[Rfam]
RNA sequence: AAUCAAGAGCGCCACCUUCCAAGCCCUGGCUCGGUGGCCGGCAACCCUCUCACGGUAGUGGGGUGCUCCAGGUGAUGAUUCGGCCGUUCGGCUUCCCGAACGGCAAGUACCGCAC
Numbered sequence: 001a002a003u004c005a006a007g008a009g010c011g012c013c014a015c016c017u018u019c020c021a022a023g024c025c026c027u028g029g030c031u032c033g034g035u036g037g038c039c040g041g042c043a044a045c046c047c048u049c050u051c052a053c054g055g056u057a058g059u060g061g062g063g064u065g066c067u068c069c070a071g072g073u074g075a076u077g078a079u080u081c082g083g084c085c086g087u088u089c090g091g092c093u094u095c096c097c098g099a100a101c102g103g104c105a106a107g108u109a110c111c112g113c114a115c
Stems, first nucleotide, its partner, number of pairs: 001080004009039001011038006022031002040067003045063003049058002083104009
Rfam assigns this 115-nucleotide sequence from Arthrobacter rhombi to the family "SAM (S-adenosyl methionine) riboswitch aptamer". Lineage of the source: Bacteria > Actinomycetota > Actinomycetes > Micrococcaceae > Arthrobacter. Its family is annotated with regulation of gene expression and S-adenosylmethionine metabolic process in the Gene Ontology.